Shown here is a 58-nucleotide RNA, a member of the family "Actino-pnp RNA". By type it is a cis-regulatory element.
[Rfam]
RNA sequence: AAUGGUCUCCGGUAGUGGUUUACGAAAUUGAUUCGUGAACUUCGAUCGUAGAUUCAUU
Numbered sequence: 001a002a003u004g005g006u007c008u009c010c011g012g013u014a015g016u017g018g019u020u021u022a023c024g025a026a027a028u029u030g031a032u033u034c035g036u037g038a039a040c041u042u043c044g045a046u047c048g049u050a051g052a053u054u055c056a057u058u
Base pairs, nucleotide, nucleotide: 001058002057003056004055005053006052007051010048011047012046013045017041018040019039020038021037022036023035024034025033026032